[Rfam]
RNA sequence: UCUCCUGUAAGAUAUGUUUGAUAUUCUUGGUUGUUAUUUGUAUCAACCGGGGAUCAAACAUAUUAUACAGUGGU
Numbered sequence: 001u002c003u004c005c006u007g008u009a010a011g012a013u014a015u016g017u018u019u020g021a022u023a024u025u026c027u028u029g030g031u032u033g034u035u036a037u038u039u040g041u042a043u044c045a046a047c048c049g050g051g052g053a054u055c056a057a058a059c060a061u062a063u064u065a066u067a068c069a070g071u072g073g074u
Stems, first nucleotide, its partner, number of pairs: 005070005011064012024051002029048005
A member of the RNA family "mir-190 microRNA precursor family" from Nezara viridula, 74 nucleotides long. The literature on the family includes a 2006 paper in Nucleic Acids Res by Kloosterman et al., "Cloning and expression of new microRNAs from zebrafish". Rfam links the family to the GO terms RISC complex and miRNA-mediated post-transcriptional gene silencing. Its Rfam clan is "mir-50 clan". The source organism's lineage runs through Eukaryota, Insecta, Pentatomidae, Pentatominae and Nezara. It scores 69 bits against the family's covariance model.